[Rfam]
RNA: azaaromatic riboswitch aptamer (yjdF RNA)
RNA sequence: GGCGCAUAGGGUAAAAACACGGUCCGGUGAUGGUAGUCCGGACGCGGAAUUCCGCCAGUAACCAGUCUUCGGCUGUCCAUCCCUUCUCGAAAGAGG
Numbered sequence: 001g002g003c004g005c006a007u008a009g010g011g012u013a014a015a016a017a018c019a020c021g022g023u024c025c026g027g028u029g030a031u032g033g034u035a036g037u038c039c040g041g042a043c044g045c046g047g048a049a050u051u052c053c054g055c056c057a058g059u060a061a062c063c064a065g066u067c068u069u070c071g072g073c074u075g076u077c078c079a080u081c082c083c084u085u086c087u088c089g090a091a092a093g094a095g096g
Base pairs, nucleotide, nucleotide: 004088008084009083010082011081022043023042024041025040026039027038044055045054046053047052065073066072067071